[Rfam]
RNA: RNase MRP
Nucleotides: 267
Base pairs, nucleotide, nucleotide: 002267003266004265005264007262008261009260010259011258014221015220016219017218018217019216023073024072025071026070027069028068037052038051039050040049041048079252080251082250083249084248085247094106095105096104097103107123108122109121110120111119112118125193127191131189132188133187134186135185136184141181151177152176153175154174161170162169163168223237224236225235226234227233228232
Number, partner (000 for none) and nucleotide at each position: 001000g002267g003266a004265u005264g006000c007262u008261c009260c010259g011258a012000a013000g014221a015220c016219c017218u018217g019216c020000u021000c022000g023073c024072u025071a026070g027069g028068c029000c030000a031000c032000g033000c034000a035000c036000g037052g038051a039050g040049g041048a042000c043000a044000g045000g046000g047000u048041u049040c050039c051038u052037c053000a054000c055000g056000g057000g058000c059000u060000u061000c062000c063000g064000u065000c066000c067000c068028g069027c070026c071025u072024a073023g074000g075000g076000g077000a078000a079252a080251g081000u082250c083249c084248c085247c086000g087000g088000a089000c090000c091000g092000c093000a094106g095105g096104c097103a098000g099000a100000g101000a102000g103097u104096g105095c106094c107123g108122g109121g110120c111119g112118c113000c114000g115000c116000c117000a118112g119111c120110g121109c122108c123107c124000c125193c126000g127191c128000c129000c130000g131189c132188c133187c134186c135185g136184c137000u138000c139000c140000g141181c142000a143000u144000u145000a146000g147000u148000c149000u150000g151177c152176c153175g154174c155000c156000g157000a158000g159000a160000c161170g162169c163168c164000c165000c166000c167000g168163g169162g170161c171000c172000g173000a174154g175153c176152g177151g178000g179000c180000g181141g182000g183000c184136g185135c186134g187133g188132g189131g190000c191127g192000g193125g194000u195000u196000c197000u198000c199000g200000u201000c202000a203000u204000g205000g206000g207000c208000a209000c210000a211000g212000g213000c214000a215000c216019g217018c218017a219016g220015g221014u222000a223237g224236u225235g226234c227233g228232c229000g230000g231000g232228g233227c234226g235225c236224a237223c238000c239000a240000a241000c242000a243000g244000c245000a246000c247085g248084g249083g250082g251080c252079u253000c254000a255000c256000u257000c258011u259010c260009g261008g262007g263000a264005c265004g266003u267002c